[Rfam]
RNA: Alphaproteobacterial sRNA ar35
Organism: Mycoplana azooxidifex
RNA sequence: AUCGGCAUUGCUGAUGAGCGCUGGAAUGCAUCUGUCGCUCGCAACUGCCGCAGUCGCUGCCUGCCUUUGACCACGGAUGUACUGGCACUGGUGGAUGAGCGAUUAUGAGGAAGGUCGGUGCGGUUUCGCCCCGACCUUUUUUGUU
Numbered sequence: 001a002u003c004g005g006c007a008u009u010g011c012u013g014a015u016g017a018g019c020g021c022u023g024g025a026a027u028g029c030a031u032c033u034g035u036c037g038c039u040c041g042c043a044a045c046u047g048c049c050g051c052a053g054u055c056g057c058u059g060c061c062u063g064c065c066u067u068u069g070a071c072c073a074c075g076g077a078u079g080u081a082c083u084g085g086c087a088c089u090g091g092u093g094g095a096u097g098a099g100c101g102a103u104u105a106u107g108a109g110g111a112a113g114g115u116c117g118g119u120g121c122g123g124u125u126u127c128g129c130c131c132c133g134a135c136c137u138u139u140u141u142u143g144u145u
Base pairs, nucleotide, nucleotide: 003050004049005048006047008044009043016040017039018038019037020036053103054102055101056100057099058098062093063092064091065090068087069086071085072084073083105144106143107142108141109140110139111138112137113136114135115134116133117132118131120129121128122127